[Rfam]
This 119-nucleotide RNA from Microlunatus sp. Gsoil 973 belongs to the Rfam family "mraW RNA".

RNA sequence: ACGGGCUCGUGUCCUCAGGCUUCAGUCCGAGGGUCUGACUCCCUGGCACAACUUCCCCGGUGCCAGGUAGUACUUCCCGCAGACCCCGGGCUGAAACCCGAGGGCACGAUCCCGCAGCC
Numbered sequence: 001a002c003g004g005g006c007u008c009g010u011g012u013c014c015u016c017a018g019g020c021u022u023c024a025g026u027c028c029g030a031g032g033g034u035c036u037g038a039c040u041c042c043c044u045g046g047c048a049c050a051a052c053u054u055c056c057c058c059g060g061u062g063c064c065a066g067g068u069a070g071u072a073c074u075u076c077c078c079g080c081a082g083a084c085c086c087c088g089g090g091c092u093g094a095a096a097c098c099c100g101a102g103g104g105c106a107c108g109a110u111c112c113c114g115c116a117g118c119c
Base pairs, nucleotide, nucleotide: 010106011105012104013103014102015101016100018098019097021095022094023093024092025091026090027089028088029087031085032084034082037073038071039070040069042067043066044065045064046063047062048061049060
The base pairs follow the family's consensus structure, which is taken from published work.